[Rfam]
RNA: Bacterial RNase P class A
Organism: Spirochaeta lutea
RNA sequence: UUUAGAGGCUAGGUUGUCGCUUACAUAUUUUUACUAUGUAAGAGGAAAGUCCGGGCUCCAUAAAGUUGACACCGGUUAAUGACCGGGAGGGAUUUCCCUACAGAAAGUGCCACAGAAAUUAGACCGCUGGAUAUCCAGUAAGGGUGAAAGGGUGGGGUAAGAGCCCACCGGCAUUGGGGUAACCCAGUGUGCUGGUAAACCUUGUCAGGAGCAAGAUCAAGCAGUCAGGAAGAGUUUUGUAUUCAAAAUGCCUGGCGGGUAGAUUGCUAUAGUUCAUGGGUAACUAUGAAUUGAGAUAGAUGACAAUCUGAAACAGAACCCGGCUUACUAGCCUUUUUUUAGA
Numbered sequence: 001u002u003u004a005g006a007g008g009c010u011a012g013g014u015u016g017u018c019g020c021u022u023a024c025a026u027a028u029u030u031u032u033a034c035u036a037u038g039u040a041a042g043a044g045g046a047a048a049g050u051c052c053g054g055g056c057u058c059c060a061u062a063a064a065g066u067u068g069a070c071a072c073c074g075g076u077u078a079a080u081g082a083c084c085g086g087g088a089g090g091g092a093u094u095u096c097c098c099u100a101c102a103g104a105a106a107g108u109g110c111c112a113c114a115g116a117a118a119u120u121a122g123a124c125c126g127c128u129g130g131a132u133a134u135c136c137a138g139u140a141a142g143g144g145u146g147a148a149a150g151g152g153u154g155g156g157g158u159a160a161g162a163g164c165c166c167a168c169c170g171g172c173a174u175u176g177g178g179g180u181a182a183c184c185c186a187g188u189g190u191g192c193u194g195g196u197a198a199a200c201c202u203u204g205u206c207a208g209g210a211g212c213a214a215g216a217u218c219a220a221g222c223a224g225u226c227a228g229g230a231a232g233a234g235u236u237u238u239g240u241a242u243u244c245a246a247a248a249u250g251c252c253u254g255g256c257g258g259g260u261a262g263a264u265u266g267c268u269a270u271a272g273u274u275c276a277u278g279g280g281u282a283a284c285u286a287u288g289a290a291u292u293g294a295g296a297u298a299g300a301u302g303a304c305a306a307u308c309u310g311a312a313a314c315a316g317a318a319c320c321c322g323g324c325u326u327a328c329u330a331g332c333c334u335u336u337u338u339u340u341a342g343a
Base pairs, nucleotide, nucleotide: 004336005335006334007333008332009331010330012308013307014306015305016304017303018302020042021041022040023039024038025037026036027035047326048325049324051323052322053321054320055319056211057210058209059208064243065242066241067207068206069205070204071203072086073085074084075083076082087101088099089098090097091096102202103201107200108199109196110195111194124143125142126139127138128137129136130135151169152168153167154166155165156164170192171190172189173188174187175186176185177184178183215265216264217263218262224256225255226254227253228252229251236248237247238246272291273290274289275288276287277286278285279284
Dot-bracket structure: ...(((((((.(((((((.((((((((.......))))))))....[[[.[[[[[((((....[[[((((((((((.....)))))(((((....)))).)((...(((((............(((((((....)))))..)).......((((((.......))))))(((((((((....)))))))).).)))..)))))))))))))...((((.....((((((......(((..]]]..)))..)))))).....))))......((((((((....))))))))..........)))))))..........]]]]]]]]...))))))).......